[Rfam]
RNA sequence: UGAAUAGAUAGAGGUUGCGUGAUUCAUGAGUAGCUUAUCGGAUGUGACAGGCACAGAGGAUGAUAACUGAAAGGGAAGAACGCCGAAAGAAGUUCUUUUCCUGAAGAGAGAUUCUUGGGCAUAUAGUGAAUAAUUAUAUGACUGUCAUCAGUGGAUGGAGUGCUAUCAUGGAU
Numbered sequence: 001u002g003a004a005u006a007g008a009u010a011g012a013g014g015u016u017g018c019g020u021g022a023u024u025c026a027u028g029a030g031u032a033g034c035u036u037a038u039c040g041g042a043u044g045u046g047a048c049a050g051g052c053a054c055a056g057a058g059g060a061u062g063a064u065a066a067c068u069g070a071a072a073g074g075g076a077a078g079a080a081c082g083c084c085g086a087a088a089g090a091a092g093u094u095c096u097u098u099u100c101c102u103g104a105a106g107a108g109a110g111a112u113u114c115u116u117g118g119g120c121a122u123a124u125a126g127u128g129a130a131u132a133a134u135u136a137u138a139u140g141a142c143u144g145u146c147a148u149c150a151g152u153g154g155a156u157g158g159a160g161u162g163c164u165a166u167c168a169u170g171g172a173u
Stems, first nucleotide, its partner, number of pairs: 007167005017083004023077003033068001035066006087116005093110006117143002120140008145158005
RNA: Lysine riboswitch aptamer
Organism: Eubacterium sp. 14-2